[Rfam]
RNA: Lysine riboswitch aptamer
RNA sequence: AGUGAUGGUAGAGGCGCGAAAACCAAUAGUAGAGUUUCGGAGGACAAUGAGGUCUGAGGAAGAGACUUAAAAGGGGAAUUCGCCGAAGUGUAAAAGGAACUCAUUUUCUUUUAUGCUGGACUUAUGUUUAAGAGGCAUAAGGCUGUCACAUAACUAAACCCAAGGUUAUGUGGAGAACUAUCUCACGU
Numbered sequence: 001a002g003u004g005a006u007g008g009u010a011g012a013g014g015c016g017c018g019a020a021a022a023c024c025a026a027u028a029g030u031a032g033a034g035u036u037u038c039g040g041a042g043g044a045c046a047a048u049g050a051g052g053u054c055u056g057a058g059g060a061a062g063a064g065a066c067u068u069a070a071a072a073g074g075g076g077a078a079u080u081c082g083c084c085g086a087a088g089u090g091u092a093a094a095a096g097g098a099a100c101u102c103a104u105u106u107u108c109u110u111u112u113a114u115g116c117u118g119g120a121c122u123u124a125u126g127u128u129u130a131a132g133a134g135g136c137a138u139a140a141g142g143c144u145g146u147c148a149c150a151u152a153a154c155u156a157a158a159c160c161c162a163a164g165g166u167u168a169u170g171u172g173g174a175g176a177a178c179u180a181u182c183u184c185a186c187g188u
Base pairs, nucleotide, nucleotide: 007182008181009180010179011178016083017082018081019080020079023076024075032068033067034066035065036064037063038062087117088116089115090114091113092112093111094110095109096108097107098106118144119143121141122140123139124138125137126136127135128134146173147172148171149170150169151168152167153166154165155164